[Rfam]
RNA: Small nucleolar RNA SNORA79
RNA sequence: UGACAGCUGGUCCUUUCUUUGCCCCAAGUAGGGGCUUUGAGAUUUUAGGCUUGCAAAGAAACUGACUUUUUUUUCACUCAGAGGCUUGCCUGGCAAAAUGUUGGCCUGUCCUGCCUUUGAAUUUGCGGGGUCAUAACAAAC
Dot-bracket structure: ((..((((.....((((...(((.........)))...)))).....))))..))........((((((........((((((((......(((.........)))......))))))))......)))))).........